Rfam assigns this 87-nucleotide RNA from Cuculus canorus to the family "Small nucleolar RNA snR60/Z15/Z230/Z193/J17".
RNA sequence: AAGGCUGUGAUGAUGACAGCAUAGUUCAGCAGACAAUCCGUGGUGAAAAUGCUGUGACUGUCUUUCGCUCCUAUCUGAUGCAGCCUC
Dot-bracket structure: .(((((...........................................................................))))).

Taxonomically the source falls in Cuculus (Eukaryota, Eumetazoa, Euteleostomi, Archelosauria). On this family, see Lowe and Eddy, Science 1999: "A computational screen for methylation guide snoRNAs in yeast". Clan: SNORD77 clan. Rfam classes the family as a C/D-box small nucleolar RNA. The pairing is the family consensus, mapped onto this sequence.